[Rfam]
RNA: Archaeal large subunit ribosomal RNA, nucleotides 544 to 640
RNA sequence: GAUGGUGCAUACAAGGUCCACUACCAAACGACCCGGGCGCGAGCCCACAGUAGGACGUAGUGGAAGCCGGUGUGCCAUCGUGCGUUUUGAAAAACGA
Numbered sequence: 001g002a003u004g005g006u007g008c009a010u011a012c013a014a015g016g017u018c019c020a021c022u023a024c025c026a027a028a029c030g031a032c033c034c035g036g037g038c039g040c041g042a043g044c045c046c047a048c049a050g051u052a053g054g055a056c057g058u059a060g061u062g063g064a065a066g067c068c069g070g071u072g073u074g075c076c077a078u079c080g081u082g083c084g085u086u087u088u089g090a091a092a093a094a095c096g097a
Stems, first nucleotide, its partner, number of pairs: 001079010015068002019062006029053001035046004083096003